[Rfam]
RNA sequence: GUCCGUUCAUCUCUUCGGAGACGCAUGAAACCUGAUCAUGGAACGGGGGUCAGGU
Numbered sequence: 001g002u003c004c005g006u007u008c009a010u011c012u013c014u015u016c017g018g019a020g021a022c023g024c025a026u027g028a029a030a031c032c033u034g035a036u037c038a039u040g041g042a043a044c045g046g047g048g049g050u051c052a053g054g055u
Base pairs, nucleotide, nucleotide: 004045005044006043007042008041010021011020012019013018030055031054032053033052034051035050036048037047
The family of this 55-nucleotide RNA is "Glutamine-II riboswitch aptamer". The family's consensus secondary structure is taken from published work. On this family, see Huang et al., Nucleic Acids Res 2019: "Structure and ligand binding of the glutamine-II riboswitch". It is one of the family's seed sequences.